The record is a 107-nucleotide sequence from Musa acuminata, which matches "mir-166 microRNA precursor family" in Rfam. Gene Ontology terms of the family: RISC complex and miRNA-mediated post-transcriptional gene silencing. Rfam describes the family as follows. This family represents the plant microRNA (miRNA) precursor mir-166. The match comes from Rfam's covariance-model search (66 bits). The literature on the family includes a 2001 paper in Cell by Ambros, "microRNAs: tiny regulators with great potential".
[Rfam]
RNA sequence: GCUGAGGGGAAUGUUGUCUGGCUCGAAGCCACUGCAACACAGAACAGUACCUCAAUUCUUGCCUUGUCGUCAUGAAUGGAUUCGGACAAGGCUUCAUUCCCCUCAAC
Number, nucleotide and partner (000 for none) at each position: 001g107002c000003u105004g104005a103006g102007g101008g100009g099010a098011a097012u096013g095014u000015u000016g092017u091018c090019u089020g000021g087022c000023u000024c084025g083026a082027a000028g000029c000030c000031a000032c000033u000034g000035c000036a000037a000038c000039a000040c000041a000042g000043a000044a000045c000046a000047g000048u000049a000050c000051c000052u000053c000054a000055a000056u000057u000058c000059u000060u000061g000062c000063c000064u000065u000066g000067u000068c000069g000070u000071c000072a000073u000074g000075a000076a000077u000078g000079g000080a000081u000082u026083c025084g024085g000086a000087c021088a000089a019090g018091g017092c016093u000094u000095c013096a012097u011098u010099c009100c008101c007102c006103u005104c004105a003106a000107c001